[Rfam]
This 86-nucleotide RNA sequence from Kineosporia babensis belongs to the Rfam family "ZMP/ZTP riboswitch aptamer (pfl RNA motif)". Taxonomically the source falls in Kineosporia (Bacteria, Actinomycetota, Kineosporiales, Kineosporiaceae). A search with the family's covariance model found it, with a score of 50 bits.
RNA sequence: GGUCGGCGCCGCAACUGGCGUUCGGGUGGGUCACCACCGGGAAGCGGUGAGUCGUCGUCUUCGGGUCGUUCGCCUGGGCCCGGGGU
Numbered sequence: 001g002g003u004c005g006g007c008g009c010c011g012c013a014a015c016u017g018g019c020g021u022u023c024g025g026g027u028g029g030g031u032c033a034c035c036a037c038c039g040g041g042a043a044g045c046g047g048u049g050a051g052u053c054g055u056c057g058u059c060u061u062c063g064g065g066u067c068g069u070u071c072g073c074c075u076g077g078g079c080c081c082g083g084g085g086u
Stems, first nucleotide, its partner, number of pairs: 007049006015041002017074004026037004063081005